Shown here is a 306-nucleotide sequence from Fukomys damarensis, a member of the family "Mason-Pfizer monkey virus packaging signal".
By type it is a cis-regulatory element.
About the family: This family represents a group of sequences that are related to the Mason-Pfizer monkey virus (MPMV) packaging signal.
Pairs were carried over by alignment from the consensus structure, which was predicted with PFOLD.
NCBI's taxonomy places the organism under Eukaryota, Vertebrata, Dipnotetrapodomorpha, Tetrapoda, Fukomys.
A reference for the family is Mustafa et al. (2004), "Mutational analysis of the predicted secondary RNA structure of the Mason-Pfizer monkey virus packaging signal", Virus Res.

[Rfam]
RNA sequence: UGGCGCCCAAACAUGGGGCUCGAGACACGGGGUCUUCACCUGGUGGAUGCUGCUCAGAAGAUCAGCCGAUUGACCCCAGGACCUCCGCCCAGUUGGCGAGUUUGGCUCCACGUACAGUCCGCUCAGACCCACCCAUCUGAGAAAGCGACCUGUGAGGUAAAUGAGCAGCACAAAAUAUGGGACAACAAUUAAGUACAUAUCAGUUAUUUGUUGAAGGUUUAAAAUCUUCCUUAAAGACGUGGGGAGUUUGGGUUAAGAAAAAGGAUUUAAUUAAGUUUUUCAAAUUUGUAGAAGAGACUUGUCUUU
Numbered sequence: 001u002g003g004c005g006c007c008c009a010a011a012c013a014u015g016g017g018g019c020u021c022g023a024g025a026c027a028c029g030g031g032g033u034c035u036u037c038a039c040c041u042g043g044u045g046g047a048u049g050c051u052g053c054u055c056a057g058a059a060g061a062u063c064a065g066c067c068g069a070u071u072g073a074c075c076c077c078a079g080g081a082c083c084u085c086c087g088c089c090c091a092g093u094u095g096g097c098g099a100g101u102u103u104g105g106c107u108c109c110a111c112g113u114a115c116a117g118u119c120c121g122c123u124c125a126g127a128c129c130c131a132c133c134c135a136u137c138u139g140a141g142a143a144a145g146c147g148a149c150c151u152g153u154g155a156g157g158u159a160a161a162u163g164a165g166c167a168g169c170a171c172a173a174a175a176u177a178u179g180g181g182a183c184a185a186c187a188a189u190u191a192a193g194u195a196c197a198u199a200u201c202a203g204u205u206a207u208u209u210g211u212u213g214a215a216g217g218u219u220u221a222a223a224a225u226c227u228u229c230c231u232u233a234a235a236g237a238c239g240u241g242g243g244g245a246g247u248u249u250g251g252g253u254u255a256a257g258a259a260a261a262a263g264g265a266u267u268u269a270a271u272u273a274a275g276u277u278u279u280u281c282a283a284a285u286u287u288g289u290a291g292a293a294g295a296g297a298c299u300u301g302u303c304u305u306u
Stems, first nucleotide, its partner, number of pairs: 006032003014025001042050001087158003090154002096149001097147002165183001169181001171179002190233003193229001195227001240282008250268005291306005
Dot-bracket structure: .....(((.....(..........)....))).........(.......)....................................(((((....(((...............................................)).)...)).)))......(...(.((.....)).).)......((((.(...............................).).)))......((((((((..(((((.........)))))......))))))))........(((((......)))))